[Rfam]
A member of the RNA family "isrI Hfq binding RNA" from Salmonella enterica, 98 nucleotides long. Rfam classes the family as a small RNA. The base pairs follow the family's consensus structure, which was predicted with WAR. The organism belongs to Salmonella enterica subsp. enterica serovar Javiana, within Bacteria. A reference for the family is Padalon-Brauch et al. (2008), "Small RNAs encoded within genetic islands of Salmonella typhimurium show host-induced expression and role in virulence", Nucleic Acids Res.

RNA sequence: AUGAGUAGGUGUCUGGCAUCUGACAAGAGGCGAUGAUAUCUGCCAUAACGGUGAAGCAGGAGUACUGUCGGGGUCGUUACAAUCACCAGCUUAGAUAU
Numbered sequence: 001a002u003g004a005g006u007a008g009g010u011g012u013c014u015g016g017c018a019u020c021u022g023a024c025a026a027g028a029g030g031c032g033a034u035g036a037u038a039u040c041u042g043c044c045a046u047a048a049c050g051g052u053g054a055a056g057c058a059g060g061a062g063u064a065c066u067g068u069c070g071g072g073g074u075c076g077u078u079a080c081a082a083u084c085a086c087c088a089g090c091u092u093a094g095a096u097a098u
Stems, first nucleotide, its partner, number of pairs: 008040006017032001019030003042052003